[Rfam]
RNA sequence: UGCGACACCCAUUAAGGAGUAGUUCCCCAUCCAGGAGCUACUUUACCAUAAUUCAAAAAA
Numbered sequence: 001u002g003c004g005a006c007a008c009c010c011a012u013u014a015a016g017g018a019g020u021a022g023u024u025c026c027c028c029a030u031c032c033a034g035g036a037g038c039u040a041c042u043u044u045a046c047c048a049u050a051a052u053u054c055a056a057a058a059a060a
Stems, first nucleotide, its partner, number of pairs: 016044011
The family of this 60-nucleotide RNA from Vitis vinifera is "Plastid-psbN 5UTR RNA". A reference for the family is Richter et al. (2023), "Retrograde signaling in plants: A critical review focusing on the GUN pathway and beyond", Plant Commun. Pairs were carried over by alignment from the consensus structure, which was predicted with LocARNA. It is annotated as a cis-regulatory element. A search with the family's covariance model found it, with a score of 66 bits. Rfam's curators write: Plastid psbN is a non-coding RNA (ncRNA) recognised in plastids. It was reported as a conserved 11 stem-loop in the prime untranslated region (5UTR) of psbN genes. It has been reported that the motif is retained in a subset of mature transcripts in barley, which can suggests a possible role in transcript alternative 5 prime processing. Taxonomically the source falls in Vitis (Eukaryota, eudicotyledons, Vitales, Vitaceae).